[Rfam]
Shown here is a 126-nucleotide RNA from Brassica napus, a member of the family "MIR9563 microRNA precursor family".
RNA sequence: AGAAGUUAAGAAACCGUUUCUUAACUUUUAACUAAAAAUGCUAAGAACCGGUUCUUAAAAUCCUUAUUUAAGAACCGGUUCUUAGUUAUUUUAAUUAAAAGUUAAGAAACAGUUUCUUUAACUUCU
Numbered sequence: 001a002g003a004a005g006u007u008a009a010g011a012a013a014c015c016g017u018u019u020c021u022u023a024a025c026u027u028u029u030a031a032c033u034a035a036a037a038a039u040g041c042u043a044a045g046a047a048c049c050g051g052u053u054c055u056u057a058a059a060a061u062c063c064u065u066a067u068u069u070a071a072g073a074a075c076c077g078g079u080u081c082u083u084a085g086u087u088a089u090u091u092u093a094a095u096u097a098a099a100a101g102u103u104a105a106g107a108a109a110c111a112g113u114u115u116c117u118u119u120a121a122c123u124u125c126u
Stems, first nucleotide, its partner, number of pairs: 001126008009117006016110016033093005041085007
Annotation
A search with the family's covariance model found it, with a score of 95 bits. Pairs were carried over by alignment from the consensus structure, which was predicted with RNAalifold.